This 92-nucleotide RNA sequence from Ziziphus jujuba belongs to the Rfam family "MIR828 microRNA precursor family".
RNA sequence: CCAAUAUUUCUUGCUCAAAUGAGUAUUCCACGCUCACAGUAAUUGCAGCUAUUCUGUGCUUCUGAGAUGCUCAUUUGAGCAAGCAAUGUUCG
Numbered sequence: 001c002c003a004a005u006a007u008u009u010c011u012u013g014c015u016c017a018a019a020u021g022a023g024u025a026u027u028c029c030a031c032g033c034u035c036a037c038a039g040u041a042a043u044u045g046c047a048g049c050u051a052u053u054c055u056g057u058g059c060u061u062c063u064g065a066g067a068u069g070c071u072c073a074u075u076u077g078a079g080c081a082a083g084c085a086a087u088g089u090u091c092g
Stems, first nucleotide, its partner, number of pairs: 004089005010083018029064002
Background
The organism belongs to Ziziphus jujuba, within Eukaryota. For this family Rfam cites "Arabidopsis lyrata small RNAs: transient MIRNA and small interfering RNA loci within the Arabidopsis genus" (Ma et al., Plant Cell, 2010). The family's consensus secondary structure was predicted with RNAalifold. A search with the family's covariance model found it, with a score of 80 bits.